RNA sequence: GCCGCCGAGGGGCGCUGCAACCCCGAAAACUACGGGGCCAGGCUCGGUGGCAAGCGUUUCAUCAACGCAACGGCGCCCGUUCAUU
Dot-bracket structure: .(((((((............(((((.......)))))......)))))))...................................
A member of the RNA family "SAH (S-adenosyl-L-homocysteine) riboswitch aptamer" from Methylogaea oryzae, 85 nucleotides long. The family's consensus secondary structure is taken from published work. NCBI's taxonomy places the organism under Bacteria, Pseudomonadati, Pseudomonadota, Methylococcales, Methylogaea. The family has 52 seed sequences and 1,354 matches in Rfam 15.1.